Shown here is a 228-nucleotide sequence from Paenibacillus polymyxa, a member of the family "glmS glucosamine-6-phosphate activated ribozyme aptamer". A search with the family's covariance model found it, with a score of 65 bits. A reference for the family is Hampel and Tinsley (2006), "Evidence for preorganization of the glmS ribozyme ligand binding pocket", Biochemistry. By type it is a riboswitch.
[Rfam]
RNA sequence: AACGUAAUACAAGCGCCAGAGCUUGAUUUUGUGCGGGGGAACUUGGUGGAGAAGCAAUAGAUUCCGUUGAGAUGAUAUUGCUCGCAUCGGUUCACGACAAAGCAAGCUGACGAGGUGAAGGUGUUCGAAACAUUCGGCGGGGACCUUCCGGUGAAGCAUCAACCCGUAAACCGGCAGCGGAAAAUGAACAGGCAACUGUUUACACAACGCACCGGUAGAUGCCCAAAU
Numbered sequence: 001a002a003c004g005u006a007a008u009a010c011a012a013g014c015g016c017c018a019g020a021g022c023u024u025g026a027u028u029u030u031g032u033g034c035g036g037g038g039g040a041a042c043u044u045g046g047u048g049g050a051g052a053a054g055c056a057a058u059a060g061a062u063u064c065c066g067u068u069g070a071g072a073u074g075a076u077a078u079u080g081c082u083c084g085c086a087u088c089g090g091u092u093c094a095c096g097a098c099a100a101a102g103c104a105a106g107c108u109g110a111c112g113a114g115g116u117g118a119a120g121g122u123g124u125u126c127g128a129a130a131c132a133u134u135c136g137g138c139g140g141g142g143a144c145c146u147u148c149c150g151g152u153g154a155a156g157c158a159u160c161a162a163c164c165c166g167u168a169a170a171c172c173g174g175c176a177g178c179g180g181a182a183a184a185u186g187a188a189c190a191g192g193c194a195a196c197u198g199u200u201u202a203c204a205c206a207a208c209g210c211a212c213c214g215g216u217a218g219a220u221g222c223c224c225a226a227a228u
Base pairs, nucleotide, nucleotide: 020108021107022106023105024104025103027101029099117148118147119146120145121144125137126136127135128134149166150165151164152161153160171218173216175214177212185202186201187200188199189198190197191196